[Rfam]
RNA sequence: CCUUCCGGCUGAAUUAGUGAUCGGCUGGAAUUCAUUCAUGUUAUUUGGAGUAGACACAAUGUCACUAAAUGCUGAAACCAAAGCCCAGAUCGUUGCCGAAUUCGCCCGUGGCGAA
Numbered sequence: 001c002c003u004u005c006c007g008g009c010u011g012a013a014u015u016a017g018u019g020a021u022c023g024g025c026u027g028g029a030a031u032u033c034a035u036u037c038a039u040g041u042u043a044u045u046u047g048g049a050g051u052a053g054a055c056a057c058a059a060u061g062u063c064a065c066u067a068a069a070u071g072c073u074g075a076a077a078c079c080a081a082a083g084c085c086c087a088g089a090u091c092g093u094u095g096c097c098g099a100a101u102u103c104g105c106c107c108g109u110g111g112c113g114a115a
Base pairs, nucleotide, nucleotide: 007026008025009024010023011022012021044069045068046067047066048065050063
About this RNA
Ribosomal S15 leader: a 115-nucleotide sequence from Oceanimonas sp. GK1. Its Rfam clan is "Ribosomal Protein S15 Leader clan". The match comes from Rfam's covariance-model search (95 bits). The base pairs follow the family's consensus structure, which is taken from published work. The E. coli Ribosomal S15 gene 5' UTR can form two alternative structures. One that is a series of three hairpins, The other includes a pseudoknot. This structure causes translational regulation of the S15 protein. The alignment of this family contains only the final two hairpins which are conserved in other species, and also includes the complete region that forms the alternate structures. Its family is annotated with regulation of translation, ncRNA-mediated in the Gene Ontology. By type it is a cis-regulatory leader.